[Rfam]
RNA sequence: ACCUGUCACGGGCGCCCCGCGCGCACCCGAGGCAUUUUCGACACACCCCGUGCCACGGGAAGAGCAUGGCACUUCAGGGCGUU
Number, nucleotide and partner (000 for none) at each position: 001a000002c000003c000004u034005g033006u032007c031008a000009c029010g028011g027012g026013c000014g024015c023016c000017c000018c000019g000020c000021g000022c000023g015024c014025a000026c012027c011028c010029g009030a000031g007032g006033c005034a004035u000036u000037u000038u000039c000040g000041a000042c000043a000044c000045a000046c000047c000048c000049c000050g072051u071052g070053c069054c068055a067056c000057g065058g000059g000060a000061a000062g000063a000064g000065c057066a000067u055068g054069g053070c052071a051072c050073u000074u000075c000076a000077g000078g000079g000080c000081g000082u000083u000

The record is an 83-nucleotide RNA sequence from Streptomyces sp. MnatMP-M17, which matches "nrdJ RNA" in Rfam.
It scores 66 bits against the family's covariance model.
It is annotated as a small RNA.
The source organism's lineage runs through Bacteria, Bacillati, Actinomycetota, Actinomycetes and Streptomyces.